[Rfam]
Nucleotides: 108
Base pairs, nucleotide, nucleotide: 001107002106003105004104005103006102011097012096013095014094015093016092017091019089021087022086023085024084025083026082027081028080029069030068031067032066033065034064049059050058051057052056
Number, partner (000 for none) and nucleotide at each position: 001107u002106u003105a004104u005103a006102g007000g008000a009000c010000g011097u012096u013095u014094u015093a016092g017091c018000a019089a020000c021087u022086g023085a024084a025083c026082u027081g028080u029069u030068u031067u032066g033065u034064c035000c036000c037000u038000c039000u040000c041000u042000c043000u044000c045000a046000a047000g048000g049059a050058a051057c052056a053000a054000a055000u056052u057051g058050u059049u060000c061000u062000g063000u064034g065033a066032c067031a068030g069029a070000g071000a072000g073000g074000g075000a076000c077000a078000a079000a080028a081027c082026a083025g084024u085023u086022c087021a088000a089019u090000g091017g092016c093015u094014a095013a096012a097011a098000c099000g100000u101000c102006c103005u104004a105003u106002a107001a108000c

A member of the RNA family "mir-8517 microRNA precursor family" from Plutella xylostella, 108 nucleotides long. The match comes from Rfam's covariance-model search (96 bits). Rfam links the family to the GO terms RISC complex and miRNA-mediated post-transcriptional gene silencing.